[Rfam]
RNA sequence: UGAAAUAAUGUAGGUAAGGGAAGUCGGCAAAAUAGAUUCGUAACUUUGGGAAAAGAAUUGGCUCUUGAGAUGUAGAUAUUCGGGUAUCAUGUAUUCAAUGGUUAUUUAAUUAAUAUAAAAUGAAUACUAGUAAUAGUUAUUUGAUUUAUAUUUAUUGAUAAUCAUUAACAUAAUACUUACAAAUAUUUGAAAUAUAAUAUUUUAACGAAUAUCAUUUUAUAUACAUUAAUCAAGAACUGGCACGGACAAGAGGAAUCCGACUGUCUAAUUAAAACAGAGGAGACAGAUGAUGCUAGAUGCAUGUAGACUGUGUCUGAUUUCUGCCCAGUGCAAUGAAUGUUAUCAUUGGGAAACCAAUUGAAGCUCUUGUAAACGGCGGGAGUAACUAUGACUCUCUUAAGGUAGCCAAAUGCCUCGUCGGGUAAUUUCCGACGCGCACGAAUGGAUUAACGAGAUUCCUACUGUCCCUAUCUACCAUUCAGCGAAAUCACAGCCAAGGGAACGGGCUUGGCA
Dot-bracket structure: ((((.....(((((((.(((..............(((((....(....).....)))))((.(((((((((((.((((((((.(((..(((.....((((.((((.((((.((((((((.(((((((((....)))).))))).)))))))).)))))))).))))..)))..))).............................)))))))).........)))))..)))))).))(...).......(((((((((..(((.........)))..(((.((((...((((.....)))).....)))).)))...(((.(((..((((((.(...((....(((((....)))))....)).)))))..)))))((((((.......))))))(...)...............((((((.....))))))..........)))....)).)))))))....))).)))))))..))))............(((((........)))))..
A member of the RNA family "Eukaryotic large subunit ribosomal RNA" from Strongyloides ratti, 513 nucleotides of a longer RNA. NCBI's taxonomy places the organism under Eukaryota, Metazoa, Nematoda, Strongyloididae, Strongyloides.